RNA sequence: UUCAUCGUGAGGUGGAAUUUGAAGGAAGCCGGAGGCAAACUUCCGACCCGAGGAACAUGAACAUUAUCAGGCAUAAGGCAUGGGAUGAGUUUGCCAAACAAAACGAAGUCCAAUUCACUACAUCGUCACCGUGCCGAUGCCCAGAACUGCUUAUCCCGGGAGCCUGGCGUCCCCU
Numbered sequence: 001u002u003c004a005u006c007g008u009g010a011g012g013u014g015g016a017a018u019u020u021g022a023a024g025g026a027a028g029c030c031g032g033a034g035g036c037a038a039a040c041u042u043c044c045g046a047c048c049c050g051a052g053g054a055a056c057a058u059g060a061a062c063a064u065u066a067u068c069a070g071g072c073a074u075a076a077g078g079c080a081u082g083g084g085a086u087g088a089g090u091u092u093g094c095c096a097a098a099c100a101a102a103a104c105g106a107a108g109u110c111c112a113a114u115u116c117a118c119u120a121c122a123u124c125g126u127c128a129c130c131g132u133g134c135c136g137a138u139g140c141c142c143a144g145a146a147c148u149g150c151u152u153a154u155c156c157c158g159g160g161a162g163c164c165u166g167g168c169g170u171c172c173c174c175u
Base pairs, nucleotide, nucleotide: 001016002015003014004013005012006011028175031172032171035168036167040162041161042160043159044158045157046154050150062149063148064144065143071140072139073138077135078134079133080132081131082130083111084110085109086108089104090103091102092101

Annotation
The family of this 175-nucleotide RNA from Cohnella zeiphila is "Group II catalytic intron D1-D4-3". Taxonomically the source falls in Cohnella (Bacteria, Bacillota, Bacilli, Paenibacillaceae). The match comes from Rfam's covariance-model search (81 bits). Group II introns are found in rRNA, tRNA and mRNA of organelles in fungi, plants and protists, and also in mRNA in bacteria.